[Rfam]
RNA sequence: AUAAUGAUACUUCUGUUCAACGCAGCCCGGUCAGCGUUAGGAGGGGUGGCUGAGAUGCCAAUGG
Numbered sequence: 001a002u003a004a005u006g007a008u009a010c011u012u013c014u015g016u017u018c019a020a021c022g023c024a025g026c027c028c029g030g031u032c033a034g035c036g037u038u039a040g041g042a043g044g045g046g047u048g049g050c051u052g053a054g055a056u057g058c059c060a061a062u063g064g
Stems, first nucleotide, its partner, number of pairs: 012061001013025004026046003031041002047060003
RNA: pemK RNA